RNA sequence: AUAUAAGAUGGACAUAUAUAACUAUUUAUCAAGAAAGCGCACGUAGACUGAUUAUAUCACCGUGUCUGUUUUUGCGCAAUAUAAAAAGAACCUGGCCUAAUUGGCCAGGUUCUUUCUUA
Numbered sequence: 001a002u003a004u005a006a007g008a009u010g011g012a013c014a015u016a017u018a019u020a021a022c023u024a025u026u027u028a029u030c031a032a033g034a035a036a037g038c039g040c041a042c043g044u045a046g047a048c049u050g051a052u053u054a055u056a057u058c059a060c061c062g063u064g065u066c067u068g069u070u071u072u073u074g075c076g077c078a079a080u081a082u083a084a085a086a087a088g089a090a091c092c093u094g095g096c097c098u099a100a101u102u103g104g105c106c107a108g109g110u111u112c113u114u115u116c117u118u119a
Base pairs, nucleotide, nucleotide: 033073034072035071036070037069038068039065040064041063042062043061084115086114087113088112089111090110091109092108093107094106095105
RNA: Bacillus sRNA ncr1015